Rfam assigns this 75-nucleotide RNA sequence from Streptomyces pilosus to the family "ASpks TB sRNA". Taxonomically the source falls in Streptomyces (Bacteria, Bacillati, Actinomycetota, Kitasatosporales). For this family Rfam cites "Identification of small RNAs in Mycobacterium tuberculosis" (Arnvig and Young, Mol Microbiol, 2009). A search with the family's covariance model found it, with a score of 81 bits.
[Rfam]
RNA sequence: CUUGAGCGAGCCGAGCCGCAGCGGACUGUCCUCAGGCCGCCCCUGGCCGUAGGUGGCGAGCAGCGCCUGGGCCUC
Numbered sequence: 001c002u003u004g005a006g007c008g009a010g011c012c013g014a015g016c017c018g019c020a021g022c023g024g025a026c027u028g029u030c031c032u033c034a035g036g037c038c039g040c041c042c043c044u045g046g047c048c049g050u051a052g053g054u055g056g057c058g059a060g061c062a063g064c065g066c067c068u069g070g071g072c073c074u075c
Base pairs, nucleotide, nucleotide: 016024017023031071032070033069038065039064043060044059047056048055049054